[Rfam]
RNA sequence: GUAUCUCCCCUCGGGGGGAGACAGAAUUCGCGCUUGCGGGAAUUCAGAGAGAGGAC
Numbered sequence: 001g002u003a004u005c006u007c008c009c010c011u012c013g014g015g016g017g018g019a020g021a022c023a024g025a026a027u028u029c030g031c032g033c034u035u036g037c038g039g040g041a042a043u044u045c046a047g048a049g050a051g052a053g054g055a056c
Stems, first nucleotide, its partner, number of pairs: 004021007024045006031038002